RNA sequence: GUUUCCCUGGAGUGUGCGUGAUCGACGAUUCAUUUUUGAGCCGAUACUCAAAAAUAGGAUGCCGCGUGUUACGGUCGGUGUGCGAACCCGGGUCUCACCGGGGGGCCUGAAGGUCGUACCUUGGCGUCCACCUUGGCAACAAGGUUCAAAAAAAUUGCCGACACGGCGCUCCGGGGAAAAC
Numbered sequence: 001g002u003u004u005c006c007c008u009g010g011a012g013u014g015u016g017c018g019u020g021a022u023c024g025a026c027g028a029u030u031c032a033u034u035u036u037u038g039a040g041c042c043g044a045u046a047c048u049c050a051a052a053a054a055u056a057g058g059a060u061g062c063c064g065c066g067u068g069u070u071a072c073g074g075u076c077g078g079u080g081u082g083c084g085a086a087c088c089c090g091g092g093u094c095u096c097a098c099c100g101g102g103g104g105g106c107c108u109g110a111a112g113g114u115c116g117u118a119c120c121u122u123g124g125c126g127u128c129c130a131c132c133u134u135g136g137c138a139a140c141a142a143g144g145u146u147c148a149a150a151a152a153a154a155u156u157g158c159c160g161a162c163a164c165g166g167c168g169c170u171c172c173g174g175g176g177a178a179a180a181c
Base pairs, nucleotide, nucleotide: 002179003178004177005176006175007174008173009172010171011170012169013168014167015166017165018164019163033152034151035150037148038147039146040145041144042143057129058128059127061125062124063123064122066120068119070118071117072116073115074114075113076112082106083105087102088101089100090099091098
Dot-bracket structure: .((((((((((((((.(((.............(((.((((((..............(((.((((.(.(.(((((((.....((...(((((......)))))..)).....))))))))).)))).))).............)))))).)))..........)))))))))))))))))..